[Rfam]
RNA sequence: GUUGCUGUUGUGCGGAUUAUAGUUGAUGAACACAAAACCCCGUGCUUGGUCAAUAAUGUGAAACAGCGGGUUCCAGUCAAACAUCGCGACCAUAAAGCCGGGCAGAGUGUUGGCGACGAACAUUUUGCCUGAUGCAAUCAUGUUCGCUCGCCG
Numbered sequence: 001g002u003u004g005c006u007g008u009u010g011u012g013c014g015g016a017u018u019a020u021a022g023u024u025g026a027u028g029a030a031c032a033c034a035a036a037a038c039c040c041c042g043u044g045c046u047u048g049g050u051c052a053a054u055a056a057u058g059u060g061a062a063a064c065a066g067c068g069g070g071u072u073c074c075a076g077u078c079a080a081a082c083a084u085c086g087c088g089a090c091c092a093u094a095a096a097g098c099c100g101g102g103c104a105g106a107g108u109g110u111u112g113g114c115g116a117c118g119a120a121c122a123u124u125u126u127g128c129c130u131g132a133u134g135c136a137a138u139c140a141u142g143u144u145c146g147c148u149c150g151c152c153g
Base pairs, nucleotide, nucleotide: 002035003034004033006032007031008030009029013025014024015023037057042051064153066151067150068149070082071081072080086147087146088145089144091142092141093140098134101130102129103127104126105125106124107123108122110119111118112117
The record is a 153-nucleotide sequence from Shimia litoralis, which matches "Ruegeria cis2 sRNA" in Rfam. Gene Ontology term of the family: regulation of gene expression. The base pairs follow the family's consensus structure, which was predicted with RNAfold. On this family, see Rivers et al., Front Microbiol 2016: "Experimental Identification of Small Non-Coding RNAs in the Model Marine Bacterium Ruegeria pomeroyi DSS-3". NCBI's taxonomy places the organism under Bacteria, Pseudomonadati, Pseudomonadota, Rhodobacterales, Shimia.